[Rfam]
RNA sequence: UGAUACAAGGGGCAAAAAUCAUAACUUGUUCCUGCUUGCAGGAUAAAAGUUAUGCUUUACUGCCCCGAACACACAUGAGGAAGUAGUCAUUUUCCCUGGAAAAUGAACGGAUUCCGAAUGGGUGUAGAAUUGCGUGAGUUGCAAAGCAACGGAGCAAUUCGUAUAUCA
Number, nucleotide and partner (000 for none) at each position: 001u168002g167003a166004u165005a164006c000007a162008a000009g000010g065011g064012g063013c062014a000015a000016a058017a057018a056019u000020c054021a053022u052023a051024a050025c049026u048027u047028g000029u045030u043031c042032c041033u040034g039035c000036u000037u000038g000039c034040a033041g032042g031043a030044u000045a029046a000047a027048a026049g025050u024051u023052a022053u021054g020055c000056u018057u017058u016059a000060c000061u000062g013063c012064c011065c010066c000067g000068a000069a125070c124071a123072c122073a000074c120075a119076u118077g000078a000079g115080g114081a113082a112083g000084u000085a000086g108087u107088c105089a104090u103091u102092u101093u100094c099095c000096c000097u000098g000099g094100a093101a092102a091103a090104u089105g088106a000107a087108c086109g000110g000111a000112u082113u081114c080115c079116g000117a000118a076119u075120g074121g000122g072123u071124g070125u069126a000127g160128a159129a158130u157131u156132g155133c154134g000135u000136g000137a000138g150139u149140u148141g147142c000143a000144a000145a000146g000147c141148a140149a139150c138151g000152g000153a000154g133155c132156a131157a130158u129159u128160c127161g000162u007163a000164u005165a004166u003167c002168a001

Notes:
A member of the RNA family "Clostridiales-1 RNA" from Roseburia zhanii, 168 nucleotides long. The organism belongs to Roseburia, within Bacteria. By type it is a small RNA.